RNA: Small nucleolar RNA SNORD53/SNORD92
RNA sequence: AUGCAGUGAUGAUCUCUUAAGUAGUGGUUUCAAUUCACUGAUUGUUGAAUGAAGACCUGAAUUUCCUUGGCUGUGUCUGAGCGU
Number, nucleotide and partner (000 for none) at each position: 001a084002u083003g082004c081005a000006g000007u000008g000009a000010u000011g000012a000013u000014c000015u000016c000017u000018u000019a000020a000021g000022u000023a000024g000025u000026g000027g000028u000029u000030u000031c000032a000033a000034u000035u000036c000037a000038c000039u000040g000041a000042u000043u000044g000045u000046u000047g000048a000049a000050u000051g000052a000053a000054g000055a000056c000057c000058u000059g000060a000061a000062u000063u000064u000065c000066c000067u000068u000069g000070g000071c000072u000073g000074u000075g000076u000077c000078u000079g000080a000081g004082c003083g002084u001